[Rfam]
RNA sequence: CUAGGAGAGCCGCGCGGACGUUGCCCUCGCCAACCCGGUCAGGUCCGGAAGGAAGCAGCCGUAACGAGUUUCCGCAGCGGGUCGCGUCGGCUUUCCGCCUUA
Numbered sequence: 001c002u003a004g005g006a007g008a009g010c011c012g013c014g015c016g017g018a019c020g021u022u023g024c025c026c027u028c029g030c031c032a033a034c035c036c037g038g039u040c041a042g043g044u045c046c047g048g049a050a051g052g053a054a055g056c057a058g059c060c061g062u063a064a065c066g067a068g069u070u071u072c073c074g075c076a077g078c079g080g081g082u083c084g085c086g087u088c089g090g091c092u093u094u095c096c097g098c099c100u101u102a
Stems, first nucleotide, its partner, number of pairs: 004096005009088001011086004015080001019079006026068004036061004044053003
The record is a 102-nucleotide RNA from Parvularcula mediterranea, which matches "Bacterial small signal recognition particle RNA" in Rfam. The match comes from Rfam's covariance-model search (57 bits). Pairs were carried over by alignment from the consensus structure, which is taken from published work.